[Rfam]
RNA sequence: UCCAUUACAGGGAAUGAAGUUCUCCCCUGGAUUUUAUCCAAAACCGCUUUUCAAGCUGAUGACUUCUGCGAUUUU
Numbered sequence: 001u002c003c004a005u006u007a008c009a010g011g012g013a014a015u016g017a018a019g020u021u022c023u024c025c026c027c028u029g030g031a032u033u034u035u036a037u038c039c040a041a042a043a044c045c046g047c048u049u050u051u052c053a054a055g056c057u058g059a060u061g062a063c064u065u066c067u068g069c070g071a072u073u074u075u
Stems, first nucleotide, its partner, number of pairs: 010026004016066006046056003

The family of this 75-nucleotide sequence from Ruthenibacterium lactatiformans is "Fluoride riboswitch aptamer (crcB RNA motif)". Rfam links the family to the GO terms positive regulation of gene expression and response to fluoride.